[Rfam]
RNA sequence: UUCUUAUUGAAUAAUGAUUGUCAUGUGUCAUAUUCUUAUUGAAUUUUGAAUUCAUGAAAGAUGAAAUGCAUUGGUAUUGUCAUUGGUCAAUCAUAUCACACGUGAUAAUCAUUAUUC
Numbered sequence: 001u002u003c004u005u006a007u008u009g010a011a012u013a014a015u016g017a018u019u020g021u022c023a024u025g026u027g028u029c030a031u032a033u034u035c036u037u038a039u040u041g042a043a044u045u046u047u048g049a050a051u052u053c054a055u056g057a058a059a060g061a062u063g064a065a066a067u068g069c070a071u072u073g074g075u076a077u078u079g080u081c082a083u084u085g086g087u088c089a090a091u092c093a094u095a096u097c098a099c100a101c102g103u104g105a106u107a108a109u110c111a112u113u114a115u116u117c
Stems, first nucleotide, its partner, number of pairs: 020106004025101002030096002036093001038091003

Annotation: This 117-nucleotide RNA from Glycine max belongs to the Rfam family "MIR1520 microRNA precursor family". Rfam 15.1 lists 1,934 matches to the family in 15 species.